Overview:
This 104-nucleotide RNA sequence from Callosobruchus maculatus belongs to the Rfam family "R2 RNA element". The match comes from Rfam's covariance-model search (41 bits). Lineage of the source: Eukaryota > Bilateria > Hexapoda > Coleoptera > Callosobruchus. This family represents the 3' UTR region of the R2 retrotransposable element. This family is known to interact with the R2-encoded reverse transcriptase in a reaction known as target primed reverse transcription (TPRT). On this family, see Ruschak et al., RNA 2004: "Secondary structure models of the 3' untranslated regions of diverse R2 RNAs". Rfam 15.1 lists 3,698 matches to the family in 74 species.
RNA sequence: CGGGGGAGUUGUAGUUGGUAGGCGCCAGCAGGCUCUACCUGCUGGUGAAUCCAACACUACCCGCACUUCCAUCGUGGGUGUACUUUGAAGAUUUCUCCUCCUCG
Numbered sequence: 001c002g003g004g005g006g007a008g009u010u011g012u013a014g015u016u017g018g019u020a021g022g023c024g025c026c027a028g029c030a031g032g033c034u035c036u037a038c039c040u041g042c043u044g045g046u047g048a049a050u051c052c053a054a055c056a057c058u059a060c061c062c063g064c065a066c067u068u069c070c071a072u073c074g075u076g077g078g079u080g081u082a083c084u085u086u087g088a089a090g091a092u093u094u095c096u097c098c099u100c101c102u103c104g
Base pairs, nucleotide, nucleotide: 001104002103003102004101005100006097007096008095014055015054016053017052018051023047024046025045026044027043028042029041030040031039032038057080059079060078061077062076063075

About this RNA:
Gene Ontology term of the family: regulation of reverse transcription.